[Rfam]
RNA: FMN riboswitch aptamer (RFN element)
RNA sequence: GCGAGUUCUCAGGGCAGGGUGAAAAUCCCUACCGGUGGUAAGUUUCCAGUAGCGAAAAUAAGCCCACGAGCGUUUGCCUAAGCAAAGACAGCAGAUUUGGUGAGAAUCCAAAGCCGACAGUGAUAGUCUGGAUGAAAGAGAAUUUUA
Numbered sequence: 001g002c003g004a005g006u007u008c009u010c011a012g013g014g015c016a017g018g019g020u021g022a023a024a025a026u027c028c029c030u031a032c033c034g035g036u037g038g039u040a041a042g043u044u045u046c047c048a049g050u051a052g053c054g055a056a057a058a059u060a061a062g063c064c065c066a067c068g069a070g071c072g073u074u075u076g077c078c079u080a081a082g083c084a085a086a087g088a089c090a091g092c093a094g095a096u097u098u099g100g101u102g103a104g105a106a107u108c109c110a111a112a113g114c115c116g117a118c119a120g121u122g123a124u125a126g127u128c129u130g131g132a133u134g135a136a137a138g139a140g141a142a143u144u145u146u147a
Base pairs, nucleotide, nucleotide: 003145004144005143006142007141008140009139010138017029018028019027031127032126033116034115035067036066037065038064062114063113070092071091096112097111098110099109100108118130119129120128